[Rfam]
RNA: c-di-AMP riboswitch aptamer (ydaO/yuaA leader)
RNA sequence: UGUGAUCAACCGUCACUCGCACACGAAGGGAACCGGGGAACCACUUCCUUGGGGUGAAUCGGGCAGCUUCUCCGAAGCCGCCCGUAGGAGACCUUCCUGCUCCGAACCCGUCAGCUAACCCGGUAGGCGUGAGGGAAGGAAAGG
Numbered sequence: 001u002g003u004g005a006u007c008a009a010c011c012g013u014c015a016c017u018c019g020c021a022c023a024c025g026a027a028g029g030g031a032a033c034c035g036g037g038g039a040a041c042c043a044c045u046u047c048c049u050u051g052g053g054g055u056g057a058a059u060c061g062g063g064c065a066g067c068u069u070c071u072c073c074g075a076a077g078c079c080g081c082c083c084g085u086a087g088g089a090g091a092c093c094u095u096c097c098u099g100c101u102c103c104g105a106a107c108c109c110g111u112c113a114g115c116u117a118a119c120c121c122g123g124u125a126g127g128c129g130u131g132a133g134g135g136a137a138g139g140a141a142a143g144g
Base pairs, nucleotide, nucleotide: 010127011126016030017029032124033123034122035121036120037119042051043050052109053108054107060084061083062082063081087103088102089101090100